[Rfam]
RNA: c-di-GMP-I-GGC riboswitch aptamer
Organism: Paenibacillus sp. FSL H7-0357
RNA sequence: AACGAUAACGGCAAACCUAUCGAAAGGUAGGGACGCAAAGCUAAAGGGCCUUCCCGGGUAUGGAUGGCAGCCAGCUACCGAAA
Numbered sequence: 001a002a003c004g005a006u007a008a009c010g011g012c013a014a015a016c017c018u019a020u021c022g023a024a025a026g027g028u029a030g031g032g033a034c035g036c037a038a039a040g041c042u043a044a045a046g047g048g049c050c051u052u053c054c055c056g057g058g059u060a061u062g063g064a065u066g067g068c069a070g071c072c073a074g075c076u077a078c079c080g081a082a083a
Stems, first nucleotide, its partner, number of pairs: 003080002011036002016031006034070001039076004046072002048068003